[Rfam]
Rfam assigns this 168-nucleotide RNA sequence from Gordonia hirsuta to the family "Group II catalytic intron D1-D4-3".

RNA sequence: GUCGUCGUGAGGCGGGGUGGAGAGGAAGCCGGAGACGAAAUUCUGCACCGAGGAACACGAACCGCAUGAGGCAUGUCGGUCGGGGUGAGCCAGCACGAGAUGGUGAAGCCCGUUCCACCGAAACGGCCGGUGUGUAGAUGCGGCGGCGGCAGGAGGAAAGUGAAUGUU
Numbered sequence: 001g002u003c004g005u006c007g008u009g010a011g012g013c014g015g016g017g018u019g020g021a022g023a024g025g026a027a028g029c030c031g032g033a034g035a036c037g038a039a040a041u042u043c044u045g046c047a048c049c050g051a052g053g054a055a056c057a058c059g060a061a062c063c064g065c066a067u068g069a070g071g072c073a074u075g076u077c078g079g080u081c082g083g084g085g086u087g088a089g090c091c092a093g094c095a096c097g098a099g100a101u102g103g104u105g106a107a108g109c110c111c112g113u114u115c116c117a118c119c120g121a122a123a124c125g126g127c128c129g130g131u132g133u134g135u136a137g138a139u140g141c142g143g144c145g146g147c148g149g150c151a152g153g154a155g156g157a158a159a160g161u162g163a164a165u166g167u168u
Stems, first nucleotide, its partner, number of pairs: 002015005028168001030166002035161002041154005046148001048146003062143005071135003075131007083111004089104004